[Rfam]
RNA sequence: AAGAUCGUUUGGCAAAACUGCCGUGAGACAGUGACGCAAAGCCAAGGGGACUUAUUGCUCAUCUAAGUCAGCCCGGUUGCAAUU
Dot-bracket structure: ...........((...((((.(....).))))...))..((((..((((((...............)))..)))))))......
Numbered sequence: 001a002a003g004a005u006c007g008u009u010u011g012g013c014a015a016a017a018c019u020g021c022c023g024u025g026a027g028a029c030a031g032u033g034a035c036g037c038a039a040a041g042c043c044a045a046g047g048g049g050a051c052u053u054a055u056u057g058c059u060c061a062u063c064u065a066a067g068u069c070a071g072c073c074c075g076g077u078u079g080c081a082a083u084u
Stems, first nucleotide, its partner, number of pairs: 012037002017032004022027001040078004046074003049069003